[Rfam]
RNA sequence: UGGAGGAACAACCCCAGUGCCUGCGGCAAGGUCUGGAGCCCUGGAGUCAGCUCCAGCAGUAACUAUGGAGCUCUCGGUCUGCAGGGCCUGGAGGCUCCGGGGGCGG
Numbered sequence: 001u002g003g004a005g006g007a008a009c010a011a012c013c014c015c016a017g018u019g020c021c022u023g024c025g026g027c028a029a030g031g032u033c034u035g036g037a038g039c040c041c042u043g044g045a046g047u048c049a050g051c052u053c054c055a056g057c058a059g060u061a062a063c064u065a066u067g068g069a070g071c072u073c074u075c076g077g078u079c080u081g082c083a084g085g086g087c088c089u090g091g092a093g094g095c096u097c098c099g100g101g102g103g104c105g106g
Stems, first nucleotide, its partner, number of pairs: 002098004009090002012086003019079001021077003025074002029072002032069004037064001041059003
RNA: mir-8834 microRNA precursor family
Organism: Vulpes vulpes